Annotation:
c-di-AMP riboswitch aptamer (ydaO/yuaA leader): a 189-nucleotide RNA sequence from Streptomyces sp. SID7982. The source organism's lineage runs through Bacteria, Bacillati, Actinomycetes, Kitasatosporales and Streptomyces.
[Rfam]
RNA sequence: CACCGCCCCCUGCCGAAUCCGGUACGCCCCCACGGGCCCCGGAGCCGGGGACCCACCGCGCACCACCGGGGUGAAUCGGUACCCGCCACGGACCGGGCACGCAGCCCGGCCCGGCCGCCGGAACCGUAGGGCAGCCUUCCGUACGCCCGAACCCGACAGCUAACCCGGCAGGCGGUCCACGGAAGGAGU
Numbered sequence: 001c002a003c004c005g006c007c008c009c010c011u012g013c014c015g016a017a018u019c020c021g022g023u024a025c026g027c028c029c030c031c032a033c034g035g036g037c038c039c040c041g042g043a044g045c046c047g048g049g050g051a052c053c054c055a056c057c058g059c060g061c062a063c064c065a066c067c068g069g070g071g072u073g074a075a076u077c078g079g080u081a082c083c084c085g086c087c088a089c090g091g092a093c094c095g096g097g098c099a100c101g102c103a104g105c106c107c108g109g110c111c112c113g114g115c116c117g118c119c120g121g122a123a124c125c126g127u128a129g130g131g132c133a134g135c136c137u138u139c140c141g142u143a144c145g146c147c148c149g150a151a152c153c154c155g156a157c158a159g160c161u162a163a164c165c166c167g168g169c170a171g172g173c174g175g176u177c178c179a180c181g182g183a184a185g186g187a188g189u
Stems, first nucleotide, its partner, number of pairs: 011174004018043005044169006054068001069154003077126004129148004